RNA sequence: GGCGGUCUUCGGUAGUGGCUGCCGGGAGUUCCCUUCGGGACAUGUCCGGCCGCUUCGAUCGACGGCCGUA
Numbered sequence: 001g002g003c004g005g006u007c008u009u010c011g012g013u014a015g016u017g018g019c020u021g022c023c024g025g026g027a028g029u030u031c032c033c034u035u036c037g038g039g040a041c042a043u044g045u046c047c048g049g050c051c052g053c054u055u056c057g058a059u060c061g062a063c064g065g066c067c068g069u070a
Base pairs, nucleotide, nucleotide: 002069003068004067005066006065007064009062010061011060012059013058017054018053019052021050022049023048024047025046026045028043029042
Record summary:
The record is a 70-nucleotide sequence from Mycolicibacterium wolinskyi, which matches "Actino-pnp RNA" in Rfam. Pairs were carried over by alignment from the consensus structure, which is taken from published work.